The record is a 50-nucleotide sequence from Mangrovicoccus algicola, which matches "Xanthine riboswitch aptamer (NMT1 RNA)" in Rfam.
Rfam links the family to the GO term purine nucleobase binding.
RNA sequence: CGCCGGAGCAGAAGCAGUCAGGCCCCCCGGGCCGGGUCAUUGCUCUGGAA
Numbered sequence: 001c002g003c004c005g006g007a008g009c010a011g012a013a014g015c016a017g018u019c020a021g022g023c024c025c026c027c028c029g030g031g032c033c034g035g036g037u038c039a040u041u042g043c044u045c046u047g048g049a050a
Stems, first nucleotide, its partner, number of pairs: 005046006015035001019036001021033005
The base pairs follow the family's consensus structure, which is taken from published work.